[Rfam]
The family of this 124-nucleotide RNA from Eutrema salsugineum is "mir-172 microRNA precursor family". From the family's description: mir-172 has been experimentally verified in Arabidopsis thaliana. For this family Rfam cites "Computational Identification of Plant MicroRNAs and Their Targets, Including a Stress-Induced miRNA" (Jones-Rhoades and Bartel, Mol Cell, 2004). Gene Ontology terms of the family: RISC complex and miRNA-mediated post-transcriptional gene silencing.
RNA sequence: GUAGUUGCAGAUGCAGUAUCAUUAAGAUUCACAAGCGAUGUGGUUUCCUUUGUUUUCGCCUCUCAGUCUGAAAAAAAGGGUUCCUUUCGAAUGGGAAUCUUGAUGAUGCUGCAUCAGCAAAUAC
Numbered sequence: 001g002u003a004g005u006u007g008c009a010g011a012u013g014c015a016g017u018a019u020c021a022u023u024a025a026g027a028u029u030c031a032c033a034a035g036c037g038a039u040g041u042g043g044u045u046u047c048c049u050u051u052g053u054u055u056u057c058g059c060c061u062c063u064c065a066g067u068c069u070g071a072a073a074a075a076a077a078g079g080g081u082u083c084c085u086u087u088c089g090a091a092u093g094g095g096a097a098u099c100u101u102g103a104u105g106a107u108g109c110u111g112c113a114u115c116a117g118c119a120a121a122u123a124c
Base pairs, nucleotide, nucleotide: 010115011114012113013112014111015110016109017108018107019106020105021104022103023102024101025100026099027098028097029096030095032093033092